Shown here is a 172-nucleotide sequence from Filimonas lacunae, a member of the family "Group II catalytic intron D1-D4-3".
RNA sequence: UCCACUGUGAGGUGGAAUCUGAAGGAAGCUGGCGGCAAAGUUCCGGCCCGAGGAAUACGAAUACUAUCAGGCAAAAGCUGUGUGGACGAGCUUGCAAGACAAAGCGAAAUCCAAUGAUUACACGGACACAGCAUUGUAAAUGGUGCGGGUAGAUGGAAUGAAGGUUUAUCGU
Dot-bracket structure: ((((((....))))))...........((.(...((...(((((((((((...........(((((....(((...((((((.(((...((((........))))....)))..............))))))..)))...))))))))))...))))))....))...).))

The pairing is the family consensus, mapped onto this sequence. Group II introns are found in rRNA, tRNA and mRNA of organelles in fungi, plants and protists, and also in mRNA in bacteria.